This 70-nucleotide RNA from Neotoma lepida belongs to the Rfam family "mir-344 microRNA precursor family". Lineage of the source: Eukaryota > Opisthokonta > Metazoa > Boreoeutheria > Neotoma. The family has 18 seed sequences and 339 matches in Rfam 15.1.

RNA sequence: UUACCAGUCAGGCUCUGGCUAGAUUCCAGCUAGCAGCUGGUACCUGAUCUAGCCAUAGCCUGACAGUAAA
Number, nucleotide and partner (000 for none) at each position: 001u000002u000003a000004c000005c000006a000007g064008u063009c062010a000011g060012g059013c058014u057015c000016u055017g054018g053019c052020u051021a050022g049023a048024u000025u000026c040027c039028a038029g037030c036031u000032a000033g000034c000035a000036g030037c029038u028039g027040g026041u000042a000043c000044c000045u000046g000047a000048u023049c022050u021051a020052g019053c018054c017055a016056u000057a014058g013059c012060c011061u000062g009063a008064c007065a000066g000067u000068a000069a000070a000